[Rfam]
RNA sequence: GGUGCCAGAAGGAGGGAUACCAAUCCAGACUUAGGAAAAGAAACCUUCCAUGGGAGUCUUGGAGAGUGGCGACCAUCCUAAUGACUUA
Numbered sequence: 001g002g003u004g005c006c007a008g009a010a011g012g013a014g015g016g017a018u019a020c021c022a023a024u025c026c027a028g029a030c031u032u033a034g035g036a037a038a039a040g041a042a043a044c045c046u047u048c049c050a051u052g053g054g055a056g057u058c059u060u061g062g063a064g065a066g067u068g069g070c071g072a073c074c075a076u077c078c079u080a081a082u083g084a085c086u087u088a
Base pairs, nucleotide, nucleotide: 002087004085006083007082010079011078012077013076015074016073018071020069021068022067024065025064030061038060039059040058041057044054045053046052
RNA: mir-9014 microRNA precursor family